[Rfam]
RNA: tRNA
RNA sequence: GCCGGAGUGGUGAAAUAGGUAAACGCAGCGGACUCAAAAUCCGCCGGGCGCAAGCCCUUGAGAGUUCGAUUCUCUCCUCCGGCA
Numbered sequence: 001g002c003c004g005g006a007g008u009g010g011u012g013a014a015a016u017a018g019g020u021a022a023a024c025g026c027a028g029c030g031g032a033c034u035c036a037a038a039a040u041c042c043g044c045c046g047g048g049c050g051c052a053a054g055c056c057c058u059u060g061a062g063a064g065u066u067c068g069a070u071u072c073u074c075u076c077c078u079c080c081g082g083c084a
Stems, first nucleotide, its partner, number of pairs: 001083007010026003028044005060076005